[Rfam]
RNA sequence: GGAUGGGGUAGAGGAGCAAAAUAAAUCAGUAAGCUGUGUAAGGAUGACAACUGUGAUCAUAGCUGAAAGGUUAUUUUGCCGAAGCGAGAAUGUAUGUCAAUGCAUGAUCGUUGGUGUUGCUCUGAAUAAGGGUACCACUCUCAUAUUUGAUUAUGUACAAUGAAUCAAAAAUGGGGAGCUACAGAUCAC
Numbered sequence: 001g002g003a004u005g006g007g008g009u010a011g012a013g014g015a016g017c018a019a020a021a022u023a024a025a026u027c028a029g030u031a032a033g034c035u036g037u038g039u040a041a042g043g044a045u046g047a048c049a050a051c052u053g054u055g056a057u058c059a060u061a062g063c064u065g066a067a068a069g070g071u072u073a074u075u076u077u078g079c080c081g082a083a084g085c086g087a088g089a090a091u092g093u094a095u096g097u098c099a100a101u102g103c104a105u106g107a108u109c110g111u112u113g114g115u116g117u118u119g120c121u122c123u124g125a126a127u128a129a130g131g132g133u134a135c136c137a138c139u140c141u142c143a144u145a146u147u148u149g150a151u152u153a154u155g156u157a158c159a160a161u162g163a164a165u166c167a168a169a170a171a172u173g174g175g176g177a178g179c180u181a182c183a184g185a186u187c188a189c
Base pairs, nucleotide, nucleotide: 008182009181010180011179016079017078018077019076020075021074022073023072024071032064033063034062035061036060037059038058083112084111085110086109087108090105091104092103093102094101113139114138115137116136118134119133120132121131122130123129141174142173143172144171146169147168148167149166150165151164152163
RNA: Lysine riboswitch aptamer